[Rfam]
RNA sequence: AAUUUUGGGUGAUUGCGGCUGGUUUGUAUCAGCUGAGGAAAGUCCAUGCUCGCACAGACUGCGAUGUCUGUAGUGUUCGUGCUCGGUGAAAAAAUAAGCCGGGGGACCAGUAAUGGUUACGGCGGGAAAAACGGCUAAGGCUUCGGCUAUGCUCGAGUAUUCCUGAAAAGUGCCACAGUGACGAAGCAAUGUUGGAAACAGCAUUGAUGGAACGCGGUAAACCCCUCGAGCGGGAAACCCAAACUUAUGGUAGGGGAGCUUCACAUAGGUAAUUGAACUGAUUGUGGGGGGAGACUUUAUGUCUCGAGAUAGAUGAUUGCCACUGCACAAUUGAGCCUGAAGAUUGUGCUUCGACAAAACAUGGCUUACAGAA
Numbered sequence: 001a002a003u004u005u006u007g008g009g010u011g012a013u014u015g016c017g018g019c020u021g022g023u024u025u026g027u028a029u030c031a032g033c034u035g036a037g038g039a040a041a042g043u044c045c046a047u048g049c050u051c052g053c054a055c056a057g058a059c060u061g062c063g064a065u066g067u068c069u070g071u072a073g074u075g076u077u078c079g080u081g082c083u084c085g086g087u088g089a090a091a092a093a094a095u096a097a098g099c100c101g102g103g104g105g106a107c108c109a110g111u112a113a114u115g116g117u118u119a120c121g122g123c124g125g126g127a128a129a130a131a132c133g134g135c136u137a138a139g140g141c142u143u144c145g146g147c148u149a150u151g152c153u154c155g156a157g158u159a160u161u162c163c164u165g166a167a168a169a170g171u172g173c174c175a176c177a178g179u180g181a182c183g184a185a186g187c188a189a190u191g192u193u194g195g196a197a198a199c200a201g202c203a204u205u206g207a208u209g210g211a212a213c214g215c216g217g218u219a220a221a222c223c224c225c226u227c228g229a230g231c232g233g234g235a236a237a238c239c240c241a242a243a244c245u246u247a248u249g250g251u252a253g254g255g256g257a258g259c260u261u262c263a264c265a266u267a268g269g270u271a272a273u274u275g276a277a278c279u280g281a282u283u284g285u286g287g288g289g290g291g292a293g294a295c296u297u298u299a300u301g302u303c304u305c306g307a308g309a310u311a312g313a314u315g316a317u318u319g320c321c322a323c324u325g326c327a328c329a330a331u332u333g334a335g336c337c338u339g340a341a342g343a344u345u346g347u348g349c350u351u352c353g354a355c356a357a358a359a360c361a362u363g364g365c366u367u368a369c370a371g372a373a
Stems, first nucleotide, its partner, number of pairs: 004373003007369001008321007016035006040367003044364005049234005054071006077229003081225001082103006104120001105118005121224002124163004133153003139148003170222002172218003187206008238255003259289007291305005325349007